A member of the RNA family "Y RNA" from Microcebus murinus, 92 nucleotides long. Rfam's curators write: Y RNAs are components of the Ro ribonucleoprotein particle (Ro RNP), in association with Ro60 and La proteins. The Y RNAs and Ro60 and La proteins are well conserved, but the function of the Ro RNP is not known. In humans the RNA component can be one of four small RNAs -- hY1, hY3, hY4 and hY5. These small RNAs are predicted to fold into a conserved secondary structure containing three stem structures. The match comes from Rfam's covariance-model search (51 bits). On this family, see Chen et al., Genes Dev 2000: "Ro ribonucleoproteins contribute to the resistance of Deinococcus radiodurans to ultraviolet irradiation".
[Rfam]
RNA sequence: GGCUGGUCCAAUGGUAGUGGGUUAUCAGAACUUACUAACAUUAGUGUCACUAAAGUUGGUAUACAACCCCCCAUUGCUAAAUUUGACUUAAA
Numbered sequence: 001g002g003c004u005g006g007u008c009c010a011a012u013g014g015u016a017g018u019g020g021g022u023u024a025u026c027a028g029a030a031c032u033u034a035c036u037a038a039c040a041u042u043a044g045u046g047u048c049a050c051u052a053a054a055g056u057u058g059g060u061a062u063a064c065a066a067c068c069c070c071c072c073a074u075u076g077c078u079a080a081a082u083u084u085g086a087c088u089u090a091a092a
Base pairs, nucleotide, nucleotide: 005088006087007086008085010084011083015079016075017074018073019072020071021070033061034060035059037057038056